[Rfam]
RNA sequence: GUCUUGUCAAUGAUGUCUUCAAACACAAAUGUCUGAACAUAUGACUGUCAGUGAUUCAGUUUUCUAAACUGAGACAAGAC
Numbered sequence: 001g002u003c004u005u006g007u008c009a010a011u012g013a014u015g016u017c018u019u020c021a022a023a024c025a026c027a028a029a030u031g032u033c034u035g036a037a038c039a040u041a042u043g044a045c046u047g048u049c050a051g052u053g054a055u056u057c058a059g060u061u062u063u064c065u066a067a068a069c070u071g072a073g074a075c076a077a078g079a080c
Base pairs, nucleotide, nucleotide: 002079003078004077005076006075007074008073
Overview
A member of the RNA family "Small nucleolar RNA SNORD72" from Cynoglossus semilaevis, 80 nucleotides long. Pairs were carried over by alignment from the consensus structure. Rfam classes the family as a C/D-box small nucleolar RNA. snoRNA HBII-240 belongs to the CD family of snoRNAs. It is the human orthologue of the mouse MBII-240 and is predicted to guide 2'O-ribose methylation of the large 28S rRNA at residue U4590. Its family is annotated with nucleolus and RNA processing in the Gene Ontology.